[Rfam]
The record is a 79-nucleotide sequence from Flavobacterium geliluteum, which matches "Flavo-1 RNA" in Rfam.
A search with the family's covariance model found it, with a score of 58 bits.
Pairs were carried over by alignment from the consensus structure, which is taken from published work.

RNA sequence: GCCUAGCCCUGAUAGAAGCGUUAUCCUUUUGUUUUUUUCUUUAAAAAAUAAAAGAUACAAGCGGAUUGCAGGACACGAG
Dot-bracket structure: ........(((..(...((...(((...((.((((((.....)))))).))..)))....))...)..)))........
Numbered sequence: 001g002c003c004u005a006g007c008c009c010u011g012a013u014a015g016a017a018g019c020g021u022u023a024u025c026c027u028u029u030u031g032u033u034u035u036u037u038u039c040u041u042u043a044a045a046a047a048a049u050a051a052a053a054g055a056u057a058c059a060a061g062c063g064g065a066u067u068g069c070a071g072g073a074c075a076c077g078a079g
Stems, first nucleotide, its partner, number of pairs: 009071003014066001018062002023056003029051002032048006